This 315-nucleotide RNA from Fervidicoccus fontis belongs to the Rfam family "Archaeal RNase P". It is annotated as a ribozyme. Gene Ontology terms of the family: ribonuclease P activity, tRNA processing and multimeric ribonuclease P complex.
RNA sequence: AGGAUCCCGCUAGCGGUUUACGGGACCUUGGUCCUGAGGAAACACCGUCCUCCCUGUGGCAUUGGGGCCUCUUUAGAGGCAGGGGGAGAUCCCCUGGCAACGGCACAGAAACGAGACGAACUCCGGUCAGAUGAUUAUGAUACCUAAAAUUCUGACCGGUAACGGUCAGAAAAGGUUGAAGAUACCGGAGUUACGAUGAAACGGCCGACCCCCAAGGAGCAAGAUCUUGCCCAGAUGAGAAGCCGCAUGAUGGGCAAGAGGAUCGCUUAGCUGAAUACCGCUGAAACUACAGAAGACGGGUUAUAGCGGGAUCCU
Numbered sequence: 001a002g003g004a005u006c007c008c009g010c011u012a013g014c015g016g017u018u019u020a021c022g023g024g025a026c027c028u029u030g031g032u033c034c035u036g037a038g039g040a041a042a043c044a045c046c047g048u049c050c051u052c053c054c055u056g057u058g059g060c061a062u063u064g065g066g067g068c069c070u071c072u073u074u075a076g077a078g079g080c081a082g083g084g085g086g087a088g089a090u091c092c093c094c095u096g097g098c099a100a101c102g103g104c105a106c107a108g109a110a111a112c113g114a115g116a117c118g119a120a121c122u123c124c125g126g127u128c129a130g131a132u133g134a135u136u137a138u139g140a141u142a143c144c145u146a147a148a149a150u151u152c153u154g155a156c157c158g159g160u161a162a163c164g165g166u167c168a169g170a171a172a173a174g175g176u177u178g179a180a181g182a183u184a185c186c187g188g189a190g191u192u193a194c195g196a197u198g199a200a201a202c203g204g205c206c207g208a209c210c211c212c213c214a215a216g217g218a219g220c221a222a223g224a225u226c227u228u229g230c231c232c233a234g235a236u237g238a239g240a241a242g243c244c245g246c247a248u249g250a251u252g253g254g255c256a257a258g259a260g261g262a263u264c265g266c267u268u269a270g271c272u273g274a275a276u277a278c279c280g281c282u283g284a285a286a287c288u289a290c291a292g293a294a295g296a297c298g299g300g301u302u303a304u305a306g307c308g309g310g311a312u313c314c315u
Stems, first nucleotide, its partner, number of pairs: 001315003005311007012282006021036005041302003045299005050219004055247006062215005067080005081095005096210002101207004117195002120191008142176004223264004229255005
A reference for the family is Frank and Pace (1998), "Ribonuclease P: unity and diversity in a tRNA processing ribozyme", Annu Rev Biochem.
Rfam's curators write: Ribonuclease P (RNase P) is a ubiquitous endoribonuclease, found in archaea, bacteria and eukarya as well as chloroplasts and mitochondria. Its best characterised activity is the generation of mature 5'-ends of tRNAs by cleaving the 5'-leader elements of precursor-tRNAs. Cellular RNase Ps are ribonucleoproteins. RNA from bacterial RNase Ps retains its catalytic activity in the absence of the protein subunit, i.e. it is a ribozyme.